[Rfam]
The family of this 67-nucleotide RNA sequence from Tinamus guttatus is "mir-302 microRNA precursor family". Its Rfam clan is "mir-290 clan". The literature on the family includes a 2006 paper in Nucleic Acids Res by Mineno et al., "The expression profile of microRNAs in mouse embryos". Its family is annotated with RISC complex and miRNA-mediated post-transcriptional gene silencing in the Gene Ontology. The base pairs follow the family's consensus structure, which was predicted with RNAalifold.
RNA sequence: CCACAACUUAAAUGUGGAUGUACUUGUUUUGUUCCUGAAAAUAAGUGCUUCCAUGUUUUAGUGACGG
Numbered sequence: 001c002c003a004c005a006a007c008u009u010a011a012a013u014g015u016g017g018a019u020g021u022a023c024u025u026g027u028u029u030u031g032u033u034c035c036u037g038a039a040a041a042u043a044a045g046u047g048c049u050u051c052c053a054u055g056u057u058u059u060a061g062u063g064a065c066g067g
Stems, first nucleotide, its partner, number of pairs: 001067002006062003010058009020048009